A member of the RNA family "azaaromatic riboswitch aptamer (yjdF RNA)" from Streptococcus agalactiae, 99 nucleotides long. The sequence is in the family's curated seed alignment. Taxonomically the source falls in Streptococcus agalactiae serogroup V (Bacteria, Bacillati, Streptococcaceae, Streptococcus).
RNA sequence: UCGUUAUAGCAUAAAAACACGUUGCAGUUGGUAGUCUGCAAGCGUUCAGUGAACGUCAGUAACCUUCCCUCCAGGUCGUCCAUUGCAAUUUAAUAUUUA
Numbered sequence: 001u002c003g004u005u006a007u008a009g010c011a012u013a014a015a016a017a018c019a020c021g022u023u024g025c026a027g028u029u030g031g032u033a034g035u036c037u038g039c040a041a042g043c044g045u046u047c048a049g050u051g052a053a054c055g056u057c058a059g060u061a062a063c064c065u066u067c068c069c070u071c072c073a074g075g076u077c078g079u080c081c082a083u084u085g086c087a088a089u090u091u092a093a094u095a096u097u098u099a
Stems, first nucleotide, its partner, number of pairs: 006089002009086003022041006042056006067075002